[Rfam]
RNA sequence: UGUCAAGAGUUAUUGGCGUCGUUUUGGCGGACAGAUUUCUUUUGCCUUAGAGAAAGGUGAGAGGAAAUG
Numbered sequence: 001u002g003u004c005a006a007g008a009g010u011u012a013u014u015g016g017c018g019u020c021g022u023u024u025u026g027g028c029g030g031a032c033a034g035a036u037u038u039c040u041u042u043u044g045c046c047u048u049a050g051a052g053a054a055a056g057g058u059g060a061g062a063g064g065a066a067a068u069g
Stems, first nucleotide, its partner, number of pairs: 010064002013061002017059004022055004029047001032044004